[Rfam]
RNA sequence: GGCUGAGGUAGUAGAUUGUAUAGUUGGAGGGUCACACCCCCGUCUCGGAGAUAACUAUACAUUCUACUGUCUUCCUCGC
Numbered sequence: 001g002g003c004u005g006a007g008g009u010a011g012u013a014g015a016u017u018g019u020a021u022a023g024u025u026g027g028a029g030g031g032u033c034a035c036a037c038c039c040c041c042g043u044c045u046c047g048g049a050g051a052u053a054a055c056u057a058u059a060c061a062u063u064c065u066a067c068u069g070u071c072u073u074c075c076u077c078g079c
Stems, first nucleotide, its partner, number of pairs: 001076002005073011017061008029041003043050001
Overview
let-7 microRNA precursor family: a 79-nucleotide RNA from Erythrocercus mccallii. The organism belongs to Erythrocercus, within Eukaryota. The family's consensus secondary structure was predicted with RNAalifold. The literature on the family includes a 2001 paper in Nat Rev Genet by Rougvie, "Control of developmental timing in animals". Rfam 15.1 lists 8,694 matches to the family in 797 species. Rfam describes the family as follows. This family represents the microRNAs (miRNA) let-7 and mir-98. let-7 was identified from a study of developmental timing in C. elegans, and was later shown to be part of a much larger class of non-coding RNAs termed miRNAs.